[Rfam]
RNA sequence: CCGGGGCCGCCCACGAAAUAUCCCCCAAACCCCGCUAGGUCCGGAAGGAAGCAACGGUAGGGGGACGCUUCGGUGCGCGAUCCGCCCCGG
Numbered sequence: 001c002c003g004g005g006g007c008c009g010c011c012c013a014c015g016a017a018a019u020a021u022c023c024c025c026c027a028a029a030c031c032c033c034g035c036u037a038g039g040u041c042c043g044g045a046a047g048g049a050a051g052c053a054a055c056g057g058u059a060g061g062g063g064g065a066c067g068c069u070u071c072g073g074u075g076c077g078c079g080a081u082c083c084g085c086c087c088c089g090g
Stems, first nucleotide, its partner, number of pairs: 001090005006081001008079003012073001014072004019067001021065006032057003040049003